RNA sequence: CUUCAGGAUCGCUAGGGUUCCGGUCGCACGGCGUCACACGCCGAGCGACGUCUGGUCCGAGAGCAAUCCGGUCUUGCCGCCUGCCUUUGCGAGGCCCCGGCGAGGCUCCACGGAGGGACAAAAGCCCGGGAGGU
Numbered sequence: 001c002u003u004c005a006g007g008a009u010c011g012c013u014a015g016g017g018u019u020c021c022g023g024u025c026g027c028a029c030g031g032c033g034u035c036a037c038a039c040g041c042c043g044a045g046c047g048a049c050g051u052c053u054g055g056u057c058c059g060a061g062a063g064c065a066a067u068c069c070g071g072u073c074u075u076g077c078c079g080c081c082u083g084c085c086u087u088u089g090c091g092a093g094g095c096c097c098c099g100g101c102g103a104g105g106c107u108c109c110a111c112g113g114a115g116g117g118a119c120a121a122a123a124g125c126c127c128g129g130g131a132g133g134u
Stems, first nucleotide, its partner, number of pairs: 007068003011064002015058002020055002022052001023049005070107010109129001111132001115127003

Notes: Rfam assigns this 134-nucleotide RNA from Burkholderia dolosa to the family "Guanidine-I riboswitch aptamer". NCBI's taxonomy places the organism under Bacteria, Pseudomonadati, Pseudomonadota, Burkholderia cepacia complex, Burkholderia dolosa. On this family, see Trachman RJ 3rd and Ferre-D'Amare, RNA 2021: "An uncommon [K(+)(Mg(2+))2] metal ion triad imparts stability and selectivity to the Guanidine-I riboswitch". Rfam links the family to the GO term regulation of gene expression.